The family of this 86-nucleotide RNA sequence from Pseudonocardia sediminis is "SAM riboswitch aptamer (S box leader)". Pairs were carried over by alignment from the consensus structure, which is taken from published work. A search with the family's covariance model found it, with a score of 45 bits. Its family is annotated with regulation of gene expression in the Gene Ontology.
RNA sequence: UUGCCAUCCUGAGCGGCCGAGAGACCCGGAUCGACGACGCCGCAGCAACCCGCACACGUGGGUGCUACCGCCGGGACCGAUGGGAG
Numbered sequence: 001u002u003g004c005c006a007u008c009c010u011g012a013g014c015g016g017c018c019g020a021g022a023g024a025c026c027c028g029g030a031u032c033g034a035c036g037a038c039g040c041c042g043c044a045g046c047a048a049c050c051c052g053c054a055c056a057c058g059u060g061g062g063u064g065c066u067a068c069c070g071c072c073g074g075g076a077c078c079g080a081u082g083g084g085a086g
Stems, first nucleotide, its partner, number of pairs: 001086002004083005013043005021032002026074004044066004049062002051058002070078001